[Rfam]
RNA sequence: UGCUUAUAAAGAAAGACGGAGGGACAGACCCUGCGAAGUCUUAGCAACCUGUGCUUACAAGGUGCUACAUUCUACUGGAGCCAUUUCAACGCGGUACCAGAAAGAUAAGUG
Dot-bracket structure: (((((((.....(((((...(((..[[[)))......)))))((((.(((((....))).))))))...(]]].((((.(((..........))).))))..).)))))))
Numbered sequence: 001u002g003c004u005u006a007u008a009a010a011g012a013a014a015g016a017c018g019g020a021g022g023g024a025c026a027g028a029c030c031c032u033g034c035g036a037a038g039u040c041u042u043a044g045c046a047a048c049c050u051g052u053g054c055u056u057a058c059a060a061g062g063u064g065c066u067a068c069a070u071u072c073u074a075c076u077g078g079a080g081c082c083a084u085u086u087c088a089a090c091g092c093g094g095u096a097c098c099a100g101a102a103a104g105a106u107a108a109g110u111g
Stems, first nucleotide, its partner, number of pairs: 001111007013042005021031003026073003043066004048062002050059003070103001075100004080095003